[Rfam]
RNA sequence: GAAGACCCUGUUGAGCUUGACUCUAGUCAGACAUUGUUUAGGGACAUGAAGGGUGUAGAAUAAGUGGGAGUCUUCUCACGGAGACGCCGUUGAAAUACCACUACCUUCAUCGUCUCUUUACUUACUCGGUGGUGCGGGUGCGGAAGAAGCCCCGAAUUUCGGGGCCCGUAUGGCUUUGAAGCCUCCCAUCACUAGAUGGAUGGCGAUCCGCUCCGGAGAAAGUGUCCGGUAGGGAGUUUAACUGGGGCGGUAUACCUGUCAAAAUGUAACGCAGGUGUCCUAAGGCCAGCUCAGCGGGGACAGAAACCUCGCGUAGAGCAAAAGGGCAAAAGCUGGCUUGAUCCUGAUUUUCAGUACGAGUACGGACCGCGAAAGCGGGGCCUAUCGAUCCUUUCGAUUUUACGAGUUUUAAGCGAGAGGUGUCAGAAAAGUUACCACAGGGAUAACUGGCUUGUGGCGGCCAAGCGUUCAUAGCGACGUCGCUUUUUGAUCUUUCGAUGUCGGCUCUUCCUAUCAUUGCGAAGCAGAAUUCGCAAAGCGUUGGAUUGUUCACCCACUAACAGGGAACGUGAGCUGGGUUUA
Numbered sequence: 001g002a003a004g005a006c007c008c009u010g011u012u013g014a015g016c017u018u019g020a021c022u023c024u025a026g027u028c029a030g031a032c033a034u035u036g037u038u039u040a041g042g043g044a045c046a047u048g049a050a051g052g053g054u055g056u057a058g059a060a061u062a063a064g065u066g067g068g069a070g071u072c073u074u075c076u077c078a079c080g081g082a083g084a085c086g087c088c089g090u091u092g093a094a095a096u097a098c099c100a101c102u103a104c105c106u107u108c109a110u111c112g113u114c115u116c117u118u119u120a121c122u123u124a125c126u127c128g129g130u131g132g133u134g135c136g137g138g139u140g141c142g143g144a145a146g147a148a149g150c151c152c153c154g155a156a157u158u159u160c161g162g163g164g165c166c167c168g169u170a171u172g173g174c175u176u177u178g179a180a181g182c183c184u185c186c187c188a189u190c191a192c193u194a195g196a197u198g199g200a201u202g203g204c205g206a207u208c209c210g211c212u213c214c215g216g217a218g219a220a221a222g223u224g225u226c227c228g229g230u231a232g233g234g235a236g237u238u239u240a241a242c243u244g245g246g247g248c249g250g251u252a253u254a255c256c257u258g259u260c261a262a263a264a265u266g267u268a269a270c271g272c273a274g275g276u277g278u279c280c281u282a283a284g285g286c287c288a289g290c291u292c293a294g295c296g297g298g299g300a301c302a303g304a305a306a307c308c309u310c311g312c313g314u315a316g317a318g319c320a321a322a323a324g325g326g327c328a329a330a331a332g333c334u335g336g337c338u339u340g341a342u343c344c345u346g347a348u349u350u351u352c353a354g355u356a357c358g359a360g361u362a363c364g365g366a367c368c369g370c371g372a373a374a375g376c377g378g379g380g381c382c383u384a385u386c387g388a389u390c391c392u393u394u395c396g397a398u399u400u401u402a403c404g405a406g407u408u409u410u411a412a413g414c415g416a417g418a419g420g421u422g423u424c425a426g427a428a429a430a431g432u433u434a435c436c437a438c439a440g441g442g443a444u445a446a447c448u449g450g451c452u453u454g455u456g457g458c459g460g461c462c463a464a465g466c467g468u469u470c471a472u473a474g475c476g477a478c479g480u481c482g483c484u485u486u487u488u489g490a491u492c493u494u495u496c497g498a499u500g501u502c503g504g505c506u507c508u509u510c511c512u513a514u515c516a517u518u519g520c521g522a523a524g525c526a527g528a529a530u531u532c533g534c535a536a537a538g539c540g541u542u543g544g545a546u547u548g549u550u551c552a553c554c555c556a557c558u559a560a561c562a563g564g565g566a567a568c569g570u571g572a573g574c575u576g577g578g579u580u581u582a
Stems, first nucleotide, its partner, number of pairs: 007441004012437002014433005020237004027229002030226004036121002040117006046110007063102005070085005126216004135210004149165007181204003240253001241251003254276006279380002285337006291317002294312006318327002342366003347361004368377003391419006399413004450491001452489001454488001456484006465475002502577001503575004507569001508566005515540001518535006542556003546552001

The record is a 582-nucleotide part of an RNA from Nephila pilipes, which matches "Eukaryotic large subunit ribosomal RNA" in Rfam. The family is grouped with related families in Rfam's "LSU clan". The source organism's lineage runs through Eukaryota, Ecdysozoa, Araneae, Araneomorphae and Nephila.